[Rfam]
RNA sequence: UUGGCAUGAUGAGGAAAGAAAUACUGUGUCUGAUCUAAGUGAUGAGAAAUACCUCCUACUCAUUCUGA
Numbered sequence: 001u002u003g004g005c006a007u008g009a010u011g012a013g014g015a016a017a018g019a020a021a022u023a024c025u026g027u028g029u030c031u032g033a034u035c036u037a038a039g040u041g042a043u044g045a046g047a048a049a050u051a052c053c054u055c056c057u058a059c060u061c062a063u064u065c066u067g068a
Base pairs, nucleotide, nucleotide: 006063007062008061009060027046030041
RNA: Small nucleolar RNA Z105
Organism: Sorghum bicolor